RNA sequence: GAAUCAAUGAUGAGAACUCAUAUGGUCCUGAAGAGACAUUAUGACCUAACAAUCAUGCUCAAUAGGAUUAUGCUGAGGCCC
Numbered sequence: 001g002a003a004u005c006a007a008u009g010a011u012g013a014g015a016a017c018u019c020a021u022a023u024g025g026u027c028c029u030g031a032a033g034a035g036a037c038a039u040u041a042u043g044a045c046c047u048a049a050c051a052a053u054c055a056u057g058c059u060c061a062a063u064a065g066g067a068u069u070a071u072g073c074u075g076a077g078g079c080c081c
Stems, first nucleotide, its partner, number of pairs: 001081001004078001005075002008072002
RNA: Small nucleolar RNA SNORD115